[Rfam]
RNA: ylbH leader
RNA sequence: AAAAAGAAAACCCUGCAGAAAAUUUUCUGCAGGGUCCUUCUAUAUCCUAAUGGAUAGAAGGCAAAGGGAGAGGAGAAACCGGAGGAAGAACUUAUGGGGAAACGUAAGUCUUCUCCGCGG
Numbered sequence: 001a002a003a004a005a006g007a008a009a010a011c012c013c014u015g016c017a018g019a020a021a022a023u024u025u026u027c028u029g030c031a032g033g034g035u036c037c038u039u040c041u042a043u044a045u046c047c048u049a050a051u052g053g054a055u056a057g058a059a060g061g062c063a064a065a066g067g068g069a070g071a072g073g074a075g076a077a078a079c080c081g082g083a084g085g086a087a088g089a090a091c092u093u094a095u096g097g098g099g100a101a102a103c104g105u106a107a108g109u110c111u112u113c114u115c116c117g118c119g120g
Stems, first nucleotide, its partner, number of pairs: 011034009035068005044055004080117004085113004090109005